[Rfam]
RNA sequence: GCUAAAUAUUUUUGCGAUGUGUUACUAAUAUGCACUUUGAAUAUACUGGGAACAUUUUGCAUGCUUGUUUUGUAUC
Numbered sequence: 001g002c003u004a005a006a007u008a009u010u011u012u013u014g015c016g017a018u019g020u021g022u023u024a025c026u027a028a029u030a031u032g033c034a035c036u037u038u039g040a041a042u043a044u045a046c047u048g049g050g051a052a053c054a055u056u057u058u059g060c061a062u063g064c065u066u067g068u069u070u071u072g073u074a075u076c
Stems, first nucleotide, its partner, number of pairs: 004070005013061005019055005025049003029045004
Dot-bracket structure: ...(((((....(((((.(((((.(((.((((.........)))).))).))))).)))))....)))))......

This 76-nucleotide sequence from Dipodomys ordii belongs to the Rfam family "mir-450 microRNA precursor family". Its family is annotated with RISC complex and miRNA-mediated post-transcriptional gene silencing in the Gene Ontology. The organism belongs to Dipodomys, within Eukaryota.